[Rfam]
RNA sequence: AAAAAGGCUCUUUUAAGAGCCACCCACUAAUUCAUAGUAGAGCAAU
Numbered sequence: 001a002a003a004a005a006g007g008c009u010c011u012u013u014u015a016a017g018a019g020c021c022a023c024c025c026a027c028u029a030a031u032u033c034a035u036a037g038u039a040g041a042g043c044a045a046u
Base pairs, nucleotide, nucleotide: 006021007020008019009018010017011016
The family of this 46-nucleotide sequence from Anabarilius grahami is "Histone 3' UTR stem-loop". The organism belongs to Anabarilius, within Eukaryota. A reference for the family is Williams and Marzluff (1995), "The sequence of the stem and flanking sequences at the 3' end of histone mRNA are critical determinants for the binding of the stem-loop binding protein", Nucleic Acids Res. Pairs were carried over by alignment from the consensus structure, which is taken from published work. Rfam classes the family as a cis-regulatory element.